[Rfam]
RNA sequence: GCUGACAAUGGCAAACCAGCCGCGAGGCUGGGACGCAAAGCUUCCGGUCUCACCGUGCUGAGAUAGCGGGGUUUCCAGCG
Numbered sequence: 001g002c003u004g005a006c007a008a009u010g011g012c013a014a015a016c017c018a019g020c021c022g023c024g025a026g027g028c029u030g031g032g033a034c035g036c037a038a039a040g041c042u043u044c045c046g047g048u049c050u051c052a053c054c055g056u057g058c059u060g061a062g063a064u065a066g067c068g069g070g071g072u073u074u075c076c077a078g079c080g
Stems, first nucleotide, its partner, number of pairs: 003077002011036002016031006034066001039073004044069003047064003

This 80-nucleotide RNA sequence from Ferrimonas sediminicola belongs to the Rfam family "c-di-GMP-I-GGC riboswitch aptamer". The literature on the family includes a 2017 paper in Proc Natl Acad Sci U S A by Weinberg et al., "Bioinformatic analysis of riboswitch structures uncovers variant classes with altered ligand specificity". Its family is annotated with cyclic-di-GMP binding in the Gene Ontology. The match comes from Rfam's covariance-model search (60 bits).